[Rfam]
Source information
The family of this 80-nucleotide RNA from Coregonus sp. 'balchen' is "mir-499 microRNA precursor family". A search with the family's covariance model found it, with a score of 90 bits. The source organism's lineage runs through Eukaryota, Eumetazoa, Vertebrata, Clupeocephala and Coregonus.
RNA sequence: GAGAAUGAGACAGUUAAGACUUGCAGUGAUGUUUAGGGAAAUUAUCACAUGAACAUCACUUUAAGUCUGUGCUGGCUCCA
Numbered sequence: 001g002a003g004a005a006u007g008a009g010a011c012a013g014u015u016a017a018g019a020c021u022u023g024c025a026g027u028g029a030u031g032u033u034u035a036g037g038g039a040a041a042u043u044a045u046c047a048c049a050u051g052a053a054c055a056u057c058a059c060u061u062u063a064a065g066u067c068u069g070u071g072c073u074g075g076c077u078c079c080a
Stems, first nucleotide, its partner, number of pairs: 017068007026059010